[Rfam]
RNA sequence: CUGCACAGGCACCCCGGGCUUCUCCGAAAGCAUCAGAUGAAAGCCCCACUGCGCGUGCGAAAGUAUGCCAUUCAGUGUUGCAGUUUAGCUCCAAUGCGUCCAACAGCUGAUUUGUGUCAAAGCAAUGGCUAUAUCU
Numbered sequence: 001c002u003g004c005a006c007a008g009g010c011a012c013c014c015c016g017g018g019c020u021u022c023u024c025c026g027a028a029a030g031c032a033u034c035a036g037a038u039g040a041a042a043g044c045c046c047c048a049c050u051g052c053g054c055g056u057g058c059g060a061a062a063g064u065a066u067g068c069c070a071u072u073c074a075g076u077g078u079u080g081c082a083g084u085u086u087a088g089c090u091c092c093a094a095u096g097c098g099u100c101c102a103a104c105a106g107c108u109g110a111u112u113u114g115u116g117u118c119a120a121a122g123c124a125a126u127g128g129c130u131a132u133a134u135c136u
Base pairs, nucleotide, nucleotide: 003058004057005056006055009052010051016046017045018044019043020042021040022039023037024036067129068128069127070126071125072124076119077118079116080115081114082113083112088107089106090105

Annotation: This 136-nucleotide RNA from Protea cynaroides belongs to the Rfam family "small nucleolar RNA snoR134". Pairs were carried over by alignment from the consensus structure, which was predicted with RNAalifold. The match comes from Rfam's covariance-model search (84 bits). Rfam links the family to the GO terms RNA processing and nucleolus. The family's RNA type in Rfam is H/ACA-box small nucleolar RNA. Taxonomically the source falls in Protea (Eukaryota, Streptophyta, Spermatophyta, Proteales).